[Rfam]
RNA sequence: UAGCAACAUCAAGAAUCCUUAAAUGGAUGCCAACCGAGCGUUAUGUCACGGUGGUAAAAUGGAUGUGGUCCUCGGAUGGACAAAAUGCCUUCCCAAC
Numbered sequence: 001u002a003g004c005a006a007c008a009u010c011a012a013g014a015a016u017c018c019u020u021a022a023a024u025g026g027a028u029g030c031c032a033a034c035c036g037a038g039c040g041u042u043a044u045g046u047c048a049c050g051g052u053g054g055u056a057a058a059a060u061g062g063a064u065g066u067g068g069u070c071c072u073c074g075g076a077u078g079g080a081c082a083a084a085a086u087g088c089c090u091u092c093c094c095a096a097c
Base pairs, nucleotide, nucleotide: 006066007065008064009063010062015028016027017026018025029055030054031053034051035050036049038046039045043091068081069080070079071078
This 97-nucleotide RNA from Flammeovirga pectinis belongs to the Rfam family "SAM-I/IV (S-adenosyl methionine) riboswitch aptamer". The match comes from Rfam's covariance-model search (52 bits). NCBI's taxonomy places the organism under Bacteria, Pseudomonadati, Cytophagales, Flammeovirgaceae, Flammeovirga. For this family Rfam cites "The aptamer core of SAM-IV riboswitches mimics the ligand-binding site of SAM-I riboswitches" (Weinberg et al., RNA, 2008).